[Rfam]
RNA sequence: AUGUUUGCCUGGCAGAGGAGACACCAUUAUCACAAAGGUGGUGUUCCCAAGGCGAGGCUUCCCCAUUGCACUCCAGAUGCACUGACUCCUGCAAUUUCCCCAAAUGCAAGAAACCUGACUGCAUAAUUUGUGGUAGUGGGGGGCUGCAUUCGUGCACUCCCCUG
Numbered sequence: 001a002u003g004u005u006u007g008c009c010u011g012g013c014a015g016a017g018g019a020g021a022c023a024c025c026a027u028u029a030u031c032a033c034a035a036a037g038g039u040g041g042u043g044u045u046c047c048c049a050a051g052g053c054g055a056g057g058c059u060u061c062c063c064c065a066u067u068g069c070a071c072u073c074c075a076g077a078u079g080c081a082c083u084g085a086c087u088c089c090u091g092c093a094a095u096u097u098c099c100c101c102a103a104a105u106g107c108a109a110g111a112a113a114c115c116u117g118a119c120u121g122c123a124u125a126a127u128u129u130g131u132g133g134u135a136g137u138g139g140g141g142g143g144c145u146g147c148a149u150u151c152g153u154g155c156a157c158u159c160c161c162c163u164g
Stems, first nucleotide, its partner, number of pairs: 012122004017047004023042005049090001051088002054086001056083002061079001063076001092117002095113001096111002138163006145156004
Dot-bracket structure: ...........((((.((((..(((((..........))))).)))).(.((.(.((...(.(............)..)..))..))).).((.(((............)).)..)).))))...............((((((.((((....)))).)))))).

A member of the RNA family "U1 spliceosomal RNA" from Carlito syrichta, 164 nucleotides long. The organism belongs to Carlito, within Eukaryota. On this family, see Oubridge et al., Nature 1994: "Crystal structure at 1.92 A resolution of the RNA-binding domain of the U1A spliceosomal protein complexed with an RNA hairpin". By type it is a spliceosomal small nuclear RNA.